[Rfam]
RNA sequence: GUCAGAUGAUUAGAGCUGAUAAAGCUGACGCUUGGUGAAGUGUGACAGUUAAUAGCAUGUUAGAGUUCUGAUGGCA
Numbered sequence: 001g002u003c004a005g006a007u008g009a010u011u012a013g014a015g016c017u018g019a020u021a022a023a024g025c026u027g028a029c030g031c032u033u034g035g036u037g038a039a040g041u042g043u044g045a046c047a048g049u050u051a052a053u054a055g056c057a058u059g060u061u062a063g064a065g066u067u068c069u070g071a072u073g074g075c076a
Stems, first nucleotide, its partner, number of pairs: 001075004
Shown here is a 76-nucleotide RNA from Oryctolagus cuniculus, a member of the family "Small nucleolar RNA SNORD28". Taxonomically the source falls in Oryctolagus (Eukaryota, Eumetazoa, Bilateria, Eutheria). For this family Rfam cites "A mammalian gene with introns instead of exons generating stable RNA products" (Tycowski et al., Nature, 1996).